[Rfam]
RNA sequence: CGUGCCGUCAUUGGGGAGUAGCCGGUUUUUGUUAACACAACAAAAGCGCCUGUAUCAACAUACUCGCAUGAACUACCUAAGUUCAGCGUGGUGCAGGCAACCGUCAGGUAGGCGAGACCAUAGACAUAUUGAACACAAUGUAGGUUGGGAGGUGUUCAGUAUGUAUAUGAGGAGCCCCGGCCGGAGA
Numbered sequence: 001c002g003u004g005c006c007g008u009c010a011u012u013g014g015g016g017a018g019u020a021g022c023c024g025g026u027u028u029u030u031g032u033u034a035a036c037a038c039a040a041c042a043a044a045a046g047c048g049c050c051u052g053u054a055u056c057a058a059c060a061u062a063c064u065c066g067c068a069u070g071a072a073c074u075a076c077c078u079a080a081g082u083u084c085a086g087c088g089u090g091g092u093g094c095a096g097g098c099a100a101c102c103g104u105c106a107g108g109u110a111g112g113c114g115a116g117a118c119c120a121u122a123g124a125c126a127u128a129u130u131g132a133a134c135a136c137a138a139u140g141u142a143g144g145u146u147g148g149g150a151g152g153u154g155u156u157c158a159g160u161a162u163g164u165a166u167a168u169g170a171g172g173a174g175c176c177c178c179g180g181c182c183g184g185a186g187a
Stems, first nucleotide, its partner, number of pairs: 026046005048098010065088003101186001102183002
Annotation
Shown here is a 187-nucleotide RNA sequence from Limnobaculum parvum, a member of the family "Manganese Mn2+ riboswitch aptamer (yybP-ykoY)". Rfam's curators write: This RNA was originally discovered in E. coli during a large scale screen and was named SraF. The family was later found to exist upstream of related families of protein genes in many bacteria, including the the yybP and ykoK genes in B. subtilis. Lineage of the source: Bacteria > Pseudomonadati > Pseudomonadota > Enterobacterales > Limnobaculum. For this family Rfam cites "Novel small RNA-encoding genes in the intergenic regions of Escherichia coli" (Argaman et al., Curr Biol, 2001).